[Rfam]
RNA sequence: GCUUUCCUUGUCUUGGGGUGGAUUGGGAAUCUCAAUGAACGUCUGGUGAGAGAUUCCCUGCUGACACCAUAAUCAACACGUAGGCAUCGCCCGAACCUCAGGUUCUGGGUCUGGUGCAAUUUUUGGAAAC
Numbered sequence: 001g002c003u004u005u006c007c008u009u010g011u012c013u014u015g016g017g018g019u020g021g022a023u024u025g026g027g028a029a030u031c032u033c034a035a036u037g038a039a040c041g042u043c044u045g046g047u048g049a050g051a052g053a054u055u056c057c058c059u060g061c062u063g064a065c066a067c068c069a070u071a072a073u074c075a076a077c078a079c080g081u082a083g084g085c086a087u088c089g090c091c092c093g094a095a096c097c098u099c100a101g102g103u104u105c106u107g108g109g110u111c112u113g114g115u116g117c118a119a120u121u122u123u124u125g126g127a128a129a130c
Stems, first nucleotide, its partner, number of pairs: 006018004021061001023060001025058001027056007039047002084117006091108002093105004